[Rfam]
A member of the RNA family "Bacillaceae-1 RNA" from Lederbergia citrea, 67 nucleotides long.
The source organism's lineage runs through Bacteria, Bacillati, Bacillota, Bacillaceae and Lederbergia.
The match comes from Rfam's covariance-model search (80 bits).
Pairs were carried over by alignment from the consensus structure, which is taken from published work.

RNA sequence: UACAAAGGAACAUCAGCUAAGAGCGCCACGUCCUGUGGCAACGCCGAUGUGACCCGCAUCCUGCGGG
Numbered sequence: 001u002a003c004a005a006a007g008g009a010a011c012a013u014c015a016g017c018u019a020a021g022a023g024c025g026c027c028a029c030g031u032c033c034u035g036u037g038g039c040a041a042c043g044c045c046g047a048u049g050u051g052a053c054c055c056g057c058a059u060c061c062u063g064c065g066g067g
Stems, first nucleotide, its partner, number of pairs: 011049004016044002025039005053067005